[Rfam]
Plastid-atpF group II-D1 intron: a 53-nucleotide RNA from Mikania micrantha. From the family's description: Plastid atpF is a non-coding RNA (ncRNA) recognised in plastids. It has been reported in the intron group II-D1 region of ATP synthase (atpF) genes. Its family is annotated with Group II intron splicing in the Gene Ontology. A search with the family's covariance model found it, with a score of 65 bits.

RNA sequence: ACAUAUUUUGUCAAUAUAGAACACUCAUAUUGAUAAAAUGAUUUGAAACUUGU
Numbered sequence: 001a002c003a004u005a006u007u008u009u010g011u012c013a014a015u016a017u018a019g020a021a022c023a024c025u026c027a028u029a030u031u032g033a034u035a036a037a038a039u040g041a042u043u044u045g046a047a048a049c050u051u052g053u
Stems, first nucleotide, its partner, number of pairs: 011033007
Taxonomically the source falls in Mikania (Eukaryota, Gunneridae, campanulids, Asteraceae).